[Rfam]
This 75-nucleotide RNA sequence from Zingiber officinale belongs to the Rfam family "Plastid-ycf2 5UTR RNA". The source organism's lineage runs through Eukaryota, Euphyllophyta, Zingiberales, Zingiberaceae and Zingiber. The base pairs follow the family's consensus structure, which was predicted with LocARNA. About the family: Plastid ycf2 is a non-coding RNA (ncRNA) recognised in plastids. It was found in the prime untranslated region (5UTR) of ycf2 genes, it presents a tRNA-like motif which suggests it can be involved in mRNA maturation, particularly involved in defining the precise 5' end of the transcript. The family's RNA type in Rfam is cis-regulatory element.
RNA sequence: GUGCAUCCAGAAGGAAUUGGACUUGGGAAUUUACCAAGUAUGAGUUGGGCAGUUCAACCAUUCAGCCAUGGAUGC
Numbered sequence: 001g002u003g004c005a006u007c008c009a010g011a012a013g014g015a016a017u018u019g020g021a022c023u024u025g026g027g028a029a030u031u032u033a034c035c036a037a038g039u040a041u042g043a044g045u046u047g048g049g050c051a052g053u054u055c056a057a058c059c060a061u062u063c064a065g066c067c068a069u070g071g072a073u074g075c
Stems, first nucleotide, its partner, number of pairs: 003075006012024003040069003044066006